[Rfam]
RNA sequence: CGACACAACUCUGGAGAGACCCCGCACGCGGGGCGCCGAAGGGAUAGCGAUCUCAGGCGAAAGGACAGAGGGGGCAUC
Numbered sequence: 001c002g003a004c005a006c007a008a009c010u011c012u013g014g015a016g017a018g019a020c021c022c023c024g025c026a027c028g029c030g031g032g033g034c035g036c037c038g039a040a041g042g043g044a045u046a047g048c049g050a051u052c053u054c055a056g057g058c059g060a061a062a063g064g065a066c067a068g069a070g071g072g073g074g075c076a077u078c
Stems, first nucleotide, its partner, number of pairs: 006073001009070005020033004035058003038054002042052002